The record is a 128-nucleotide RNA sequence from Prodigiosinella confusarubida, which matches "Salmonella enterica Typhi npcRNA 44" in Rfam. Rfam classes the family as a non-coding RNA gene.
RNA sequence: CUUUAACAAUCUGGAACAAGCUGAAAAUUGAAACGAUACAGCGAAACCUGCCUUGAUGGCGGGAGUUGGCUGUAUCAGAGUCUCUCAAAUAAUCGCAUCCCGGAUAUUCCGAAUCGAUGAAUGAGCGA
Numbered sequence: 001c002u003u004u005a006a007c008a009a010u011c012u013g014g015a016a017c018a019a020g021c022u023g024a025a026a027a028u029u030g031a032a033a034c035g036a037u038a039c040a041g042c043g044a045a046a047c048c049u050g051c052c053u054u055g056a057u058g059g060c061g062g063g064a065g066u067u068g069g070c071u072g073u074a075u076c077a078g079a080g081u082c083u084c085u086c087a088a089a090u091a092a093u094c095g096c097a098u099c100c101c102g103g104a105u106a107u108u109c110c111g112a113a114u115c116g117a118u119g120a121a122u123g124a125g126c127g128a
Base pairs, nucleotide, nucleotide: 020096021095023094024093027090028089029088034078036075037074038073039072040071041070042069101127102126105123106122107121108120